The record is a 363-nucleotide sequence from Kouleothrix aurantiaca, which matches "transfer-messenger RNA" in Rfam. A search with the family's covariance model found it, with a score of 180 bits. A reference for the family is Mao et al. (2010), "Variations on the tmRNA gene", RNA Biol. Its family is annotated with RNA catabolic process in the Gene Ontology. The family's consensus secondary structure is taken from published work.
[Rfam]
RNA sequence: GGGGAUGACUGGCUUCGACAGGGGAGGAUGUCGUUGGUUGCAAGCCGAGCCGCCCAGUCUCGUUAAAGGGGCAACGGCAAUAACUGCCAAAAACAACACCUGGGCUCGCAGCAACGCUGUGGCCCUCGCUGCCUAACUAGGUAGCGCGCCGGCCCACACUCACCCCGAUGGUGUGGGGUCCGGCGUCAACAGUCGGGGCGCUCCCGGAUAAGUACCUGCGCGUUCGGGCUAAGCAAAGCAGGAUGGCCCAAAAGUCGCUUUGUCGGUUGUGUGGCUUCGGGCGACAUUAAACAAUUGACUACGCUUGUAGACGCCGGCGUCUAACUUUUCUGGACGGGGGUUCGACUCCCCCCAUCUCCACCA
Numbered sequence: 001g002g003g004g005a006u007g008a009c010u011g012g013c014u015u016c017g018a019c020a021g022g023g024g025a026g027g028a029u030g031u032c033g034u035u036g037g038u039u040g041c042a043a044g045c046c047g048a049g050c051c052g053c054c055c056a057g058u059c060u061c062g063u064u065a066a067a068g069g070g071g072c073a074a075c076g077g078c079a080a081u082a083a084c085u086g087c088c089a090a091a092a093a094c095a096a097c098a099c100c101u102g103g104g105c106u107c108g109c110a111g112c113a114a115c116g117c118u119g120u121g122g123c124c125c126u127c128g129c130u131g132c133c134u135a136a137c138u139a140g141g142u143a144g145c146g147c148g149c150c151g152g153c154c155c156a157c158a159c160u161c162a163c164c165c166c167g168a169u170g171g172u173g174u175g176g177g178g179u180c181c182g183g184c185g186u187c188a189a190c191a192g193u194c195g196g197g198g199c200g201c202u203c204c205c206g207g208a209u210a211a212g213u214a215c216c217u218g219c220g221c222g223u224u225c226g227g228g229c230u231a232a233g234c235a236a237a238g239c240a241g242g243a244u245g246g247c248c249c250a251a252a253a254g255u256c257g258c259u260u261u262g263u264c265g266g267u268u269g270u271g272u273g274g275c276u277u278c279g280g281g282c283g284a285c286a287u288u289a290a291a292c293a294a295u296u297g298a299c300u301a302c303g304c305u306u307g308u309a310g311a312c313g314c315c316g317g318c319g320u321c322u323a324a325c326u327u328u329u330c331u332g333g334a335c336g337g338g339g340g341u342u343c344g345a346c347u348c349c350c351c352c353c354a355u356c357u358c359c360a361c362c363a
Base pairs, nucleotide, nucleotide: 001359002358003357004356005355006354007353019332020331021330022329023328024327025326026325030321032319033318034317035316036315037314038313041307042306043305044304045303046062047061048060049059052072053071054070055069127146128145129144130143131142132141147185148184149183150182151181152180153177154176155175156174157173158172159171160170164198165197166196203228204227205226206225207224208223209222214244216242217241246282247281248280249279252277253276254275255274258271262299263298264297265296267293336352337351338350339349340348